[Rfam]
RNA: mir-147 microRNA precursor family
Nucleotides: 078
Stems, first nucleotide, its partner, number of pairs: 001078001004075004009070003013066003018061011032049001
Number, partner (000 for none) and nucleotide at each position: 001078c002000c003000u004075g005074a006073a007072u008000c009070u010069a011068g012000a013066g014065g015064a016000a017000g018061c019060a020059u021058u022057u023056c024055u025054g026053c027052a028051c029000a030000c031000a032049c033000c034000a035000g036000a037000c038000u039000a040000u041000u042000g043000a044000a045000a046000c047000c048000a049032g050000c051028g052027u053026g054025u055024g056023g057022g058021a059020a060019u061018g062000c063000c064015u065014c066013u067000g068011c069010u070009a071000c072007g073006u074005u075004c076000g077000u078001g